[Rfam]
RNA sequence: CACCGACAUCAAUGAUUCGUUUUGCGAACCAUGGCCGACAGCCAAAUAAGCGUGCAUGCCCAGCUCUUUCAUCUGCUGUUCGCCAAUCACGCGGGUGACGGUGUUGGUACUGAAAGCAUCCGCCAAUUGGCGAGCCUGAGACGCCAGAUAGGCGGCGUUACAGAUAUUGGGUGGCAUAUUGCCCAAGUCUUUUGC
Number, nucleotide and partner (000 for none) at each position: 001c000002a000003c000004c000005g189006a188007c187008a000009u000010c000011a000012a032013u031014g030015a000016u028017u027018c026019g025020u024021u000022u000023u000024g020025c019026g018027a017028a016029c000030c014031a013032u012033g043034g042035c041036c000037g000038a000039c000040a000041g035042c034043c033044a000045a000046a000047u000048a000049a000050g059051c058052g000053u000054g000055c000056a000057u000058g051059c050060c000061c000062a077063g076064c075065u000066c000067u000068u000069u000070c000071a000072u000073c000074u000075g064076c063077u062078g135079u134080u133081c132082g131083c130084c129085a128086a127087u126088c000089a000090c000091g123092c122093g121094g120095g119096u118097g117098a000099c112100g111101g110102u109103g108104u000105u000106g000107g000108u103109a102110c101111u100112g099113a000114a000115a000116g000117c097118a096119u095120c094121c093122g092123c091124c000125a000126a087127u086128u085129g084130g083131c082132g081133a080134g079135c078136c163137u162138g161139a000140g159141a158142c157143g156144c155145c154146a000147g000148a000149u000150a000151g000152g000153c000154g145155g144156c143157g142158u141159u140160a000161c138162a137163g136164a000165u000166a000167u186168u185169g184170g183171g182172u181173g000174g000175c000176a000177u000178a000179u000180u000181g172182c171183c170184c169185a168186a167187g007188u006189c005190u000191u000192u000193u000194g000195c000

The family of this 195-nucleotide RNA sequence from Yersinia pestis is "Yersinia sRNA 276". Rfam's curators put it in the seed alignment.